This 129-nucleotide sequence from Monodelphis domestica belongs to the Rfam family "Small nucleolar RNA SNORA40".
On this family, see Ofengand and Bakin, J Mol Biol 1997: "Mapping to nucleotide resolution of pseudouridine residues in large subunit ribosomal RNAs from representative eukaryotes, prokaryotes, archaebacteria, mitochondria and chloroplasts".
Gene Ontology terms of the family: nucleolus and RNA processing.
The organism belongs to Monodelphis, within Eukaryota.
The base pairs follow the family's consensus structure, which was predicted with RNAalifold.
RNA sequence: UGCACUUCAUUUAGCUUUGUUUUUGAAUUGUAGACAAAGACUUAAAGACAAGUGCAAAGAACAAACCCUCUUUUGCAACCCACAACCCAUGGUUUUGUAUGAGUUGUGAUACAUACAAGAAGGGACAAU
Numbered sequence: 001u002g003c004a005c006u007u008c009a010u011u012u013a014g015c016u017u018u019g020u021u022u023u024u025g026a027a028u029u030g031u032a033g034a035c036a037a038a039g040a041c042u043u044a045a046a047g048a049c050a051a052g053u054g055c056a057a058a059g060a061a062c063a064a065a066c067c068c069u070c071u072u073u074u075g076c077a078a079c080c081c082a083c084a085a086c087c088c089a090u091g092g093u094u095u096u097g098u099a100u101g102a103g104u105u106g107u108g109a110u111a112c113a114u115a116c117a118a119g120a121a122g123g124g125a126c127a128a129u
Base pairs, nucleotide, nucleotide: 001056002055003054004053005052006051007050011046014041015039016038017037018036019035020034067124068123069122071120072119073118074117075116081108082107083106084105085104086103088101089100090099